Background
The family of this 73-nucleotide sequence from Microtus ochrogaster is "Small nucleolar RNA SNORD73". The family has 25 seed sequences and 769 matches in Rfam 15.1. Lineage of the source: Eukaryota > Deuterostomia > Tetrapoda > Cricetidae > Microtus. A search with the family's covariance model found it, with a score of 85 bits.

Nucleotides: 073
Base pairs, nucleotide, nucleotide: 001073002072003071004070
Number, partner (000 for none) and nucleotide at each position: 001073a002072a003071u004070g005000a006000a007000u008000g009000a010000u011000g012000a013000c014000a015000a016000a017000a018000u019000g020000u021000u022000u023000c024000g025000g026000u027000c028000c029000c030000a031000a032000a033000u034000g035000a036000a037000u038000u039000a040000u041000a042000c043000u044000g045000a046000u047000u048000u049000a050000a051000c052000c053000g054000u055000u056000a057000c058000a059000u060000g061000u062000a063000u064000u065000g066000c067000u068000g069000a070004c071003a072002u073001u